U7 small nuclear RNA: a 64-nucleotide sequence from Rattus norvegicus.
The family's consensus secondary structure was predicted with PFOLD.
RNA sequence: AAUUUCUUUAUAGCUCUUUUAGAAUUUUUCUAACAGGAUUUCUGACUUGGUCAGAAAAUCCAAG
Dot-bracket structure: ...................................(((((((((((...)))))))).)))...
It scores 44 bits against the family's covariance model. Lineage of the source: Eukaryota > Gnathostomata > Teleostomi > Amniota > Rattus.